[Rfam]
The record is a 513-nucleotide part of an RNA from Samia ricini, which matches "Eukaryotic large subunit ribosomal RNA" in Rfam. The family's consensus secondary structure is taken from published work. Taxonomically the source falls in Samia (Eukaryota, Mandibulata, Amphiesmenoptera, Glossata).

RNA sequence: GGUAGUAGCAAAUACUCCAGCGAGGCCCUGGAGGACUGACGUGGAGAAGGGUUUCGCGUGAACAGUAGUUGCUCGCGAGUCAGUCGAUCCUAAGCUCAAGGAGAGAUCUUAUGUCGAUGUGGCGUGUUUAUUUUAUAUAUCGGUAUAUGUUAGAUAAAUAACGCCCUUUGAGCGAAAGGGAAUCCGGUUCCUAUUCCGGAACCCGGCAGCGGAACCGUUUCAAUAAUCGUUCCCUCGUGUUAAAAGCGAGUGUUCGACGGGGUAACCCAAAGUGGCCUGAAGACGCCGCCGAGAGGUCCGGGAAGAGUUUUCUUUUCUGCCUGAGCGUUCGAGUUCCAUGGAAUCCUAUAGAAGGGAGAUAUGGUUCGGAACGCGAAGAGCACCGCAUUUGCGGCGGUGUCCGGAUACUCUCUGCGGACCUUGAAAAUUCAGGUGAGGGAUGUACGUGGAGAUGUCGCGCCGGUUCGUACCCAUAUCCGCAGCAGGUCUCCAAGGUGAAGAGCCUCUAGUCGA
Number, nucleotide and partner (000 for none) at each position: 001g000002g000003u000004a000005g000006u000007a000008g000009c000010a000011a000012a000013u000014a000015c033016u032017c031018c030019a029020g028021c000022g000023a000024g000025g000026c000027c000028c020029u019030g018031g017032a016033g015034g511035a510036c509037u508038g000039a000040c000041g000042u000043g491044g490045a489046g488047a000048a000049g471050g470051g000052u000053u000054u078055c077056g076057c075058g074059u000060g000061a000062a000063c071064a070065g000066u000067a000068g000069u000070u064071g063072c000073u000074c058075g057076c056077g055078a054079g000080u000081c000082a000083g000084u000085c467086g466087a465088u000089c179090c178091u000092a000093a000094g173095c172096u000097c000098a110099a000100g109101g108102a107103g000104a000105g000106a000107u102108c101109u100110u098111a000112u000113g000114u000115c000116g000117a000118u000119g166120u000121g164122g000123c000124g000125u000126g000127u000128u000129u000130a000131u000132u000133u000134u000135a000136u000137a000138u000139a000140u000141c000142g000143g000144u000145a000146u000147a000148u000149g000150u000151u000152a000153g000154a000155u000156a000157a000158a000159u000160a000161a000162c000163g000164c121165c000166c119167u000168u000169u000170g000171a000172g095173c094174g000175a000176a000177a000178g090179g089180g000181a000182a000183u200184c199185c198186g197187g196188u000189u000190c000191c000192u000193a000194u000195u000196c187197c186198g185199g184200a183201a000202c000203c463204c462205g461206g460207c000208a000209g000210c000211g000212g000213a000214a000215c000216c000217g000218u000219u000220u000221c000222a000223a000224u000225a000226a000227u000228c000229g000230u000231u000232c000233c000234c000235u000236c000237g000238u000239g000240u000241u000242a000243a000244a000245a000246g458247c457248g456249a455250g453251u452252g000253u000254u000255c000256g000257a000258c000259g268260g267261g266262g000263u000264a000265a000266c261267c260268c259269a000270a000271a000272g000273u000274g000275g000276c433277c432278u431279g430280a429281a428282g000283a000284c000285g000286c417287c416288g415289c000290c000291g412292a411293g410294a409295g408296g000297u000298c404299c403300g402301g321302g320303a000304a318305g317306a316307g000308u000309u000310u000311u000312c000313u000314u000315u000316u306317c305318u304319g000320c302321c301322u000323g000324a000325g374326c373327g372328u371329u370330c000331g000332a000333g000334u000335u000336c364337c363338a362339u361340g360341g000342a000343a000344u356345c355346c354347u353348a000349u000350a000351g000352a000353a347354g346355g345356g344357a000358g000359a000360u340361a339362u338363g337364g336365u000366u000367c000368g000369g000370a329371a328372c327373g326374c325375g000376a000377a000378g000379a000380g000381c399382a398383c397384c396385g395386c394387a000388u000389u000390u000391g000392c000393g000394g386395c385396g384397g383398u382399g381400u000401c000402c300403g299404g298405a000406u000407a000408c295409u294410c293411u292412c291413u000414g000415c288416g287417g286418a000419c000420c000421u000422u000423g000424a000425a000426a000427a000428u281429u280430c279431a278432g277433g276434u000435g000436a000437g000438g000439g000440a000441u000442g000443u000444a000445c000446g000447u000448g000449g000450a000451g000452a251453u250454g000455u249456c248457g247458c246459g000460c206461c205462g204463g203464u000465u087466c086467g085468u000469a000470c050471c049472c000473a000474u000475a000476u000477c486478c485479g000480c000481a000482g000483c000484a000485g478486g477487u000488c046489u045490c044491c043492a000493a505494g504495g503496u502497g000498a000499a000500g000501a000502g496503c495504c494505u493506c000507u000508a037509g036510u035511c034512g000513a000